[Rfam]
Shown here is an 80-nucleotide RNA from Protea cynaroides, a member of the family "Small nucleolar RNA R12". The base pairs follow the family's consensus structure, which was predicted with PFOLD. A search with the family's covariance model found it, with a score of 41 bits. From the family's description: snoR12 is a C/D box small nucleolar RNA, which acts as a methylation guide for 25S ribosomal RNA in plants. snoR12 has been alternatively named snoZ44 in Arabidopsis and snoZ131 in rice.
RNA sequence: UGACUGGAUGAUGUAAUAAAUCAAACGGAGUCCCAAUGAUCAUUUUAUAUGAUUAACACAUCCAAAUACUUGUGACAUCA
Numbered sequence: 001u002g003a004c005u006g007g008a009u010g011a012u013g014u015a016a017u018a019a020a021u022c023a024a025a026c027g028g029a030g031u032c033c034c035a036a037u038g039a040u041c042a043u044u045u046u047a048u049a050u051g052a053u054u055a056a057c058a059c060a061u062c063c064a065a066a067u068a069c070u071u072g073u074g075a076c077a078u079c080a
Base pairs, nucleotide, nucleotide: 001080002079003078005077006076